[Rfam]
RNA sequence: UUUCCCCCCCGGGGGGGGGGGGGUUUUUUUUUUUUUAAAAAAAAGGGGGGGGAAAAAAAAAUUUUUAAACCCCCCAAAAAAAACCCCCAAAAAAAAAAUUUUUUUUAAAAAAAAAACCCCCCCCCUUUUUUGGGGAAAAAAAAAAAUUUUUUUUUUGG
Numbered sequence: 001u002u003u004c005c006c007c008c009c010c011g012g013g014g015g016g017g018g019g020g021g022g023g024u025u026u027u028u029u030u031u032u033u034u035u036u037a038a039a040a041a042a043a044a045g046g047g048g049g050g051g052g053a054a055a056a057a058a059a060a061a062u063u064u065u066u067a068a069a070c071c072c073c074c075c076a077a078a079a080a081a082a083a084c085c086c087c088c089a090a091a092a093a094a095a096a097a098a099u100u101u102u103u104u105u106u107a108a109a110a111a112a113a114a115a116a117c118c119c120c121c122c123c124c125c126u127u128u129u130u131u132g133g134g135g136a137a138a139a140a141a142a143a144a145a146a147u148u149u150u151u152u153u154u155u156u157g158g
Base pairs, nucleotide, nucleotide: 007135008134009133010132011126012125013124014123015122016121020120021119022118023117024116025059026058027057028056029055030054031053032052033051034050035049036048076105077104078103079102080101139156140155141154142153143152144151145150